[Rfam]
RNA sequence: GUACCUUUGCAACACUCUGGCUCUUACCGUUCUUUCCCGCCUCCGGGCCUGGAUUGAACAACUACCUCGUGGUAUAGGCUUAUUUUGCGCAAAGGAGAUCAACGACCCUCUACUCACCGCGGUGUUCUCGGACGAAGCAAGCUUCGUCCCGUGGAUACAGUGGUCCAUUUCAUCGGUCUACAU
Numbered sequence: 001g002u003a004c005c006u007u008u009g010c011a012a013c014a015c016u017c018u019g020g021c022u023c024u025u026a027c028c029g030u031u032c033u034u035u036c037c038c039g040c041c042u043c044c045g046g047g048c049c050u051g052g053a054u055u056g057a058a059c060a061a062c063u064a065c066c067u068c069g070u071g072g073u074a075u076a077g078g079c080u081u082a083u084u085u086u087g088c089g090c091a092a093a094g095g096a097g098a099u100c101a102a103c104g105a106c107c108c109u110c111u112a113c114u115c116a117c118c119g120c121g122g123u124g125u126u127c128u129c130g131g132a133c134g135a136a137g138c139a140a141g142c143u144u145c146g147u148c149c150c151g152u153g154g155a156u157a158c159a160g161u162g163g164u165c166c167a168u169u170u171c172a173u174c175g176g177u178c179u180a181c182a183u
Stems, first nucleotide, its partner, number of pairs: 007092003019080004025074004030057002034053003104178004117163004122158003126155003